[Rfam]
RNA sequence: GAAGUCAGCCGGACAGCCGCCGCCCGCUUGCGGGGGGAGGAAAGUCCGGGCUCCGCAGAGCAGGAUGCCGGCUAACGGCCGGGCGUCGCGAGGCGACGGAAAGUGGAACAGAGAGCAGAACCGCCGAUGGCCGGGGCAACCCGGCACAGGCAAGGGUGAAAAGGUGGACUCCUUCACGGAGCCGCCGGGUGCAAACCCGGCGCGGUAAGAGCGCACCGCGGACGUGGCAACACGGACGGCAGGCUAAACCCCAUCCGGAGCAAGACCAAACAGGGGGCAUUGACGUGGCUCGCGUCGUCCCCGGGUAGGUUGCUGGAGCGCACGGGUAACCGUGCGCCUAGAGGAAUGGCUGUCUGAGGUGGCAACACCCGAACACAGAACCCGGCUUACAGGCUGACUUCACCC
Number, nucleotide and partner (000 for none) at each position: 001g401002a400003a399004g398005u397006c396007a395008g394009c393010c392011g390012g354013a353014c352015a351016g350017c349018c348019g000020c037021c036022g000023c034024c033025c032026g031027c000028u000029u000030g000031c026032g025033g024034g023035g000036g021037g020038a000039g000040g000041a000042a388043a387044g386045u000046c385047c384048g383049g382050g381051c260052u259053c258054c257055g000056c000057a000058g291059a290060g289061c288062a000063g256064g255065a254066u253067g252068c082069c081070g080071g079072c078073u000074a000075a000076c000077g000078g072079c071080c070081g069082g068083g097084c095085g094086u093087c092088g000089c000090g000091a000092g087093g086094c085095g084096a000097c083098g251099g250100a000101a000102a000103g249104u248105g245106g244107a000108a000109c000110a000111g000112a000113g000114a000115g000116c000117a000118g000119a000120a190121c189122c000123g000124c188125c187126g186127a000128u184129g183130g182131c181132c000133g000134g000135g000136g000137c000138a000139a000140c000141c000142c000143g000144g000145c000146a000147c000148a000149g000150g000151c000152a000153a000154g000155g000156g000157u000158g000159a000160a000161a000162a000163g000164g000165u000166g000167g000168a000169c000170u000171c000172c000173u000174u000175c000176a000177c000178g000179g000180a000181g131182c130183c129184g128185c000186c126187g125188g124189g121190u120191g000192c000193a000194a000195a000196c000197c000198c000199g217200g216201c000202g214203c213204g212205g000206u000207a000208a000209g000210a000211g000212c204213g203214c202215a000216c200217c199218g240219c238220g237221g000222a000223c234224g233225u232226g231227g000228c000229a000230a000231c226232a225233c224234g223235g000236a000237c220238g219239g000240c218241a000242g000243g000244c106245u105246a000247a000248a104249c103250c099251c098252c067253a066254u065255c064256c063257g054258g053259a052260g051261c000262a000263a000264g311265a310266c309267c308268a000269a000270a000271c000272a000273g302274g301275g300276g299277g298278c297279a000280u000281u000282g296283a295284c294285g293286u292287g000288g061289c060290u059291c058292g286293c285294g284295u283296c282297g278298u277299c276300c275301c274302c273303g000304g000305g000306u000307a000308g267309g266310u265311u264312g000313c000314u000315g000316g000317a000318g337319c336320g335321c334322a333323c332324g331325g330326g000327u000328a000329a000330c325331c324332g323333u322334g321335c320336g319337c318338c000339u000340a000341g000342a000343g000344g000345a000346a000347u000348g018349g017350c016351u015352g014353u013354c012355u000356g000357a000358g000359g000360u000361g000362g000363c000364a000365a000366c000367a000368c000369c000370c000371g000372a000373a000374c000375a000376c000377a000378g000379a000380a000381c050382c049383c048384g047385g046386c044387u043388u042389a000390c011391a000392g010393g009394c008395u007396g006397a005398c004399u003400u002401c001402a000403c000404c000405c000